c-di-GMP-I-GGC riboswitch aptamer: an 86-nucleotide RNA sequence from Bacillus sp. B1-b2.
RNA sequence: UAAAAUAUUGGCAAACUACUUGAAAAAGUAGGACGCAAAACUAGAGGGGCUAAAACUAUUUCAGAAAUGCCAGCCAGUUGCUUCAA
Number, nucleotide and partner (000 for none) at each position: 001u086002a000003a083004a082005a000006u000007a000008u000009u000010g000011g036012c035013a000014a000015a000016c031017u030018a029019c028020u027021u026022g000023a000024a000025a000026a021027a020028g019029u018030a017031g016032g000033a000034c073035g012036c011037a000038a000039a079040a078041c077042u076043a000044g000045a000046g075047g074048g071049g070050c069051u000052a000053a000054a000055a000056c000057u000058a000059u000060u000061u000062c000063a000064g000065a000066a000067a000068u000069g050070c049071c048072a000073g034074c047075c046076a042077g041078u040079u039080g000081c000082u004083u003084c000085a000086a001